[Rfam]
RNA: U5 spliceosomal RNA
Organism: Lynx canadensis
RNA sequence: AUAGUCUGGUUUCUCUUCAAGUCGUAUAAAUCUUUUGCCUUCUACUAAGGAUUUACAUAAAGAGGAAUAGUUACAAGUUUUUUUUUAGGAUUUUAAAUAUAUACAUAUAUAUAA
Numbered sequence: 001a002u003a004g005u006c007u008g009g010u011u012u013c014u015c016u017u018c019a020a021g022u023c024g025u026a027u028a029a030a031u032c033u034u035u036u037g038c039c040u041u042c043u044a045c046u047a048a049g050g051a052u053u054u055a056c057a058u059a060a061a062g063a064g065g066a067a068u069a070g071u072u073a074c075a076a077g078u079u080u081u082u083u084u085u086u087a088g089g090a091u092u093u094u095a096a097a098u099a100u101a102u103a104c105a106u107a108u109a110u111a112u113a114a
Stems, first nucleotide, its partner, number of pairs: 003078001005076001009068009019058001028054008098113006